Nucleotides: 066
Stems, first nucleotide, its partner, number of pairs: 014032006
Number, partner (000 for none) and nucleotide at each position: 001000u002000a003000u004000a005000u006000u007000u008000g009000c010000a011000g012000c013000u014032u015031c016030a017029a018028u019027g020000a021000a022000u023000c024000a025000a026000u027019c028018a029017u030016u031015g032014a033000u034000a035000u036000a037000c038000a039000u040000a041000a042000u043000a044000a045000u046000c047000a048000u049000u050000u051000a052000a053000a054000u055000a056000a057000u058000a059000u060000u061000g062000g063000a064000a065000u066000g